Notes:
The family of this 140-nucleotide RNA sequence from Marmota marmota is "Small nucleolar RNA SNORA12". Rfam describes the family as follows. U108 belongs to the H/ACA family of snoRNAs. The sequence is predicted to guide the pseudouridylation of the U372 residue in the 28S rRNA subunit. However it has not been reported as a pseudouridylation site. The family's RNA type in Rfam is H/ACA-box small nucleolar RNA. Lineage of the source: Eukaryota > Amniota > Eutheria > Marmotini > Marmota marmota.
RNA sequence: GAUUGUGUGGUUUCUUUCUGCUGCAUUUGUUUUCAAAUAGGCCUACUCUGUCACAUGCAUUAUAUUGGAGCUAGUAAAUGUUUGAAGACAGAAAGAUCUAUCUUAAGCUUUUCCUGCAUCAGAGAUUGGCUCCCACAUGU
Numbered sequence: 001g002a003u004u005g006u007g008u009g010g011u012u013u014c015u016u017u018c019u020g021c022u023g024c025a026u027u028u029g030u031u032u033u034c035a036a037a038u039a040g041g042c043c044u045a046c047u048c049u050g051u052c053a054c055a056u057g058c059a060u061u062a063u064a065u066u067g068g069a070g071c072u073a074g075u076a077a078a079u080g081u082u083u084g085a086a087g088a089c090a091g092a093a094a095g096a097u098c099u100a101u102c103u104u105a106a107g108c109u110u111u112u113c114c115u116g117c118a119u120c121a122g123a124g125a126u127u128g129g130c131u132c133c134c135a136c137a138u139g140u
Stems, first nucleotide, its partner, number of pairs: 005054003008050003020042002025038005067133006073082003099125001101123003